Background: A member of the RNA family "mir-1343 microRNA precursor family" from Loxodonta africana, 83 nucleotides long. The family's consensus secondary structure was predicted with RNAalifold. Rfam 15.1 lists 238 matches to the family in 131 species. Lineage of the source: Eukaryota > Craniata > Gnathostomata > Afrotheria > Loxodonta. Gene Ontology terms of the family: RISC complex and miRNA-mediated post-transcriptional gene silencing.
RNA sequence: CUGGUGUCAGUGCUGGGGACCGCCCCCCGGGGCGGGCCUCCACUCUGGCCCCUCCUGGGGCCCGCACUCUCCUUGCGGGCCAG
Numbered sequence: 001c002u003g004g005u006g007u008c009a010g011u012g013c014u015g016g017g018g019a020c021c022g023c024c025c026c027c028c029g030g031g032g033c034g035g036g037c038c039u040c041c042a043c044u045c046u047g048g049c050c051c052c053u054c055c056u057g058g059g060g061c062c063c064g065c066a067c068u069c070u071c072c073u074u075g076c077g078g079g080c081c082a083g
Stems, first nucleotide, its partner, number of pairs: 003081003007078002012073001015070004021064002025060007034051005